[Rfam]
RNA sequence: UGUCGAAGUUCCAUCUACAAAUGGAUAAGACUUCGGUAUUAGUGUAUCCGAGUUCGUGAAAGUAAAGGAGCAAUACCAAACUUCUUGAUAAAACAAGAAAUUGUUUAUUGCUCCUUUAUU
Numbered sequence: 001u002g003u004c005g006a007a008g009u010u011c012c013a014u015c016u017a018c019a020a021a022u023g024g025a026u027a028a029g030a031c032u033u034c035g036g037u038a039u040u041a042g043u044g045u046a047u048c049c050g051a052g053u054u055c056g057u058g059a060a061a062g063u064a065a066a067g068g069a070g071c072a073a074u075a076c077c078a079a080a081c082u083u084c085u086u087g088a089u090a091a092a093a094c095a096a097g098a099a100a101u102u103g104u105u106u107a108u109u110g111c112u113c114c115u116u117u118a119u120u
Stems, first nucleotide, its partner, number of pairs: 010025005064117012079102002082099005
Dot-bracket structure: .........(((((......)))))......................................((((((((((((...((.(((((........))))).))...))))))))))))...